[Rfam]
mir-8517 microRNA precursor family: a 109-nucleotide RNA sequence from Plutella xylostella. The match comes from Rfam's covariance-model search (81 bits). The source organism's lineage runs through Eukaryota, Eumetazoa, Pterygota, Heteroneura and Plutella.
RNA sequence: UUACUGGACGCUUUCGCUAUUGAACUGUUCUGUCACUCUCUAACAGAGAAAUUUGUUCUUUGACAGAGAGGGACAAAAUAGUUGUAGAAUAGCUAUAGCGUCCACUAAC
Numbered sequence: 001u002u003a004c005u006g007g008a009c010g011c012u013u014u015c016g017c018u019a020u021u022g023a024a025c026u027g028u029u030c031u032g033u034c035a036c037u038c039u040c041u042a043a044c045a046g047a048g049a050a051a052u053u054u055g056u057u058c059u060u061u062g063a064c065a066g067a068g069a070g071g072g073a074c075a076a077a078a079u080a081g082u083u084g085u086a087g088a089a090u091a092g093c094u095a096u097a098g099c100g101u102c103c104a105c106u107a108a109c
Base pairs, nucleotide, nucleotide: 001108002107003106005104006103011098012097014095016093017092018091019090020089021088023083024082025081026080027079028078029067030066031065032064033063034062035061049057050054